Source information:
Shown here is a 148-nucleotide RNA from Acidipropionibacterium virtanenii, a member of the family "FMN riboswitch aptamer (RFN element)". A search with the family's covariance model found it, with a score of 89 bits.

[Rfam]
RNA sequence: CACGUGCUCCGGGGUCGGUGAAAGUCCGAACCGGCGGUGACAGUCCGCGAACCGUUUUCGAUGUCGGGGGAACACUCCUGGCAGAAGGCGGCCGAACCGGUGGAAAUCCGGUACCGACGGUGAAAGUCCGGAUGGGAGGCAGCACGAG
Numbered sequence: 001c002a003c004g005u006g007c008u009c010c011g012g013g014g015u016c017g018g019u020g021a022a023a024g025u026c027c028g029a030a031c032c033g034g035c036g037g038u039g040a041c042a043g044u045c046c047g048c049g050a051a052c053c054g055u056u057u058u059c060g061a062u063g064u065c066g067g068g069g070g071a072a073c074a075c076u077c078c079u080g081g082c083a084g085a086a087g088g089c090g091g092c093c094g095a096a097c098c099g100g101u102g103g104a105a106a107u108c109c110g111g112u113a114c115c116g117a118c119g120g121u122g123a124a125a126g127u128c129c130g131g132a133u134g135g136g137a138g139g140c141a142g143c144a145c146g147a148g
Stems, first nucleotide, its partner, number of pairs: 003146006009139002016028003030127002032116002034048004043114002052091008096112005118130003